[Rfam]
RNA sequence: GGACAUCAGGACGAAGUGAUCGGGUUCUUCUUUGGACCCAGGAAAGUCCCCGGGCCCUUUACCGUAGAGAUACGUGCUCGGAAACGAGUAAGCUACGCGCAAAGAGGUCCACUUGCUUUCGGGCAAAAGGCUGAGACACGUGUGGAGCCUGGAUCGCUUUCCGUAGCAACCUUAGCCGAUUUAACACAGUUAUUCACUUGGUCCAUUGGACUAACUGAACGGGGAUUACGAUUCAGAUGUC
Numbered sequence: 001g002g003a004c005a006u007c008a009g010g011a012c013g014a015a016g017u018g019a020u021c022g023g024g025u026u027c028u029u030c031u032u033u034g035g036a037c038c039c040a041g042g043a044a045a046g047u048c049c050c051c052g053g054g055c056c057c058u059u060u061a062c063c064g065u066a067g068a069g070a071u072a073c074g075u076g077c078u079c080g081g082a083a084a085c086g087a088g089u090a091a092g093c094u095a096c097g098c099g100c101a102a103a104g105a106g107g108u109c110c111a112c113u114u115g116c117u118u119u120c121g122g123g124c125a126a127a128a129g130g131c132u133g134a135g136a137c138a139c140g141u142g143u144g145g146a147g148c149c150u151g152g153a154u155c156g157c158u159u160u161c162c163g164u165a166g167c168a169a170c171c172u173u174a175g176c177c178g179a180u181u182u183a184a185c186a187c188a189g190u191u192a193u194u195c196a197c198u199u200g201g202u203c204c205a206u207u208g209g210a211c212u213a214a215c216u217g218a219a220c221g222g223g224g225a226u227u228a229c230g231a232u233u234c235a236g237a238u239g240u241c
Base pairs, nucleotide, nucleotide: 002241003240004239005238006237007236009234010233011232014199015198016197017196018195019194022039023038024037025036026035027034044227045226048224049223050222051221063074064073065072066071075090076089077088078087079086080085092167093166094165098163099162101160102159103158121150122149123148124147136143137142201211202210203209204208
Rfam assigns this 241-nucleotide RNA sequence from Papaver somniferum to the family "RNase MRP". The family's RNA type in Rfam is ribozyme. The source organism's lineage runs through Eukaryota, Embryophyta, Magnoliopsida, Mesangiospermae and Papaver.